[Rfam]
The family of this 160-nucleotide sequence from Taxus chinensis is "U1 spliceosomal RNA". From the family's description: U1 is a small nuclear RNA (snRNA) component of the spliceosome (involved in pre-mRNA splicing). Its 5' end forms complementary base pairs with the 5' splice junction, thus defining the 5' donor site of an intron.

RNA sequence: AUACUUACCUGGGCGGGGUCAAUCGGUGAUCAGAAAGGCCGAUGGCCUAGGGAGGGCACCUUCAUUGCACUAGGAAGGGGGCACUGCCUAGCAUCUCCCUUUGUGGAGAGUGCACGUCAUAAUUUGUGUCAGAGGAGGCUCGCGUCCGCGCGGCCUCCAC
Numbered sequence: 001a002u003a004c005u006u007a008c009c010u011g012g013g014c015g016g017g018g019u020c021a022a023u024c025g026g027u028g029a030u031c032a033g034a035a036a037g038g039c040c041g042a043u044g045g046c047c048u049a050g051g052g053a054g055g056g057c058a059c060c061u062u063c064a065u066u067g068c069a070c071u072a073g074g075a076a077g078g079g080g081g082c083a084c085u086g087c088c089u090a091g092c093a094u095c096u097c098c099c100u101u102u103g104u105g106g107a108g109a110g111u112g113c114a115c116g117u118c119a120u121a122a123u124u125u126g127u128g129u130c131a132g133a134g135g136a137g138g139c140u141c142g143c144g145u146c147c148g149c150g151c152g153g154c155c156u157c158c159a160c
Stems, first nucleotide, its partner, number of pairs: 012118004016048006023042005049089003056082002059079003062075002091113003094109003098106002134158004141152004
The family is grouped with related families in Rfam's "U1 clan". It scores 131 bits against the family's covariance model.